[Rfam]
RNA sequence: CCUCUUCUCUUCACUCAUCCCGCGCCCUAUAUUCGAUCCGCUGGCCCUGUGGCCAGAUAUGGCGAUAAACGGUGCUCGGAAUAAGCGUAGUGGACCCGGGGGCAGUACCCGGCGCCUCCACCAUCACCCCAGGCUCGCUUGGGGCUCAUGGGGGCGAAACAGGCUCGACACGCGCGGUAAAGGUACAUCUUUUGCUCGGCAUGAUACCGCCGUUAUCGGGUCAUUUUACAAAUGCCAAUGAUAACCAUGAGGCAUUCGCUAUCGCUGCGUAAGCAGUGACAAGCGCGGUUCGGGGGGCACCGGGCAACAGAAGCCCCCUAUU
Numbered sequence: 001c002c003u004c005u006u007c008u009c010u011u012c013a014c015u016c017a018u019c020c021c022g023c024g025c026c027c028u029a030u031a032u033u034c035g036a037u038c039c040g041c042u043g044g045c046c047c048u049g050u051g052g053c054c055a056g057a058u059a060u061g062g063c064g065a066u067a068a069a070c071g072g073u074g075c076u077c078g079g080a081a082u083a084a085g086c087g088u089a090g091u092g093g094a095c096c097c098g099g100g101g102g103c104a105g106u107a108c109c110c111g112g113c114g115c116c117u118c119c120a121c122c123a124u125c126a127c128c129c130c131a132g133g134c135u136c137g138c139u140u141g142g143g144g145c146u147c148a149u150g151g152g153g154g155c156g157a158a159a160c161a162g163g164c165u166c167g168a169c170a171c172g173c174g175c176g177g178u179a180a181a182g183g184u185a186c187a188u189c190u191u192u193u194g195c196u197c198g199g200c201a202u203g204a205u206a207c208c209g210c211c212g213u214u215a216u217c218g219g220g221u222c223a224u225u226u227u228a229c230a231a232a233u234g235c236c237a238a239u240g241a242u243a244a245c246c247a248u249g250a251g252g253c254a255u256u257c258g259c260u261a262u263c264g265c266u267g268c269g270u271a272a273g274c275a276g277u278g279a280c281a282a283g284c285g286c287g288g289u290u291c292g293g294g295g296g297g298c299a300c301c302g303g304g305c306a307a308c309a310g311a312a313g314c315c316c317c318c319u320a321u322u
Stems, first nucleotide, its partner, number of pairs: 041056006061196005071189004077183001086174003090171003096112005113156007197212004202223003207219002286302004292318005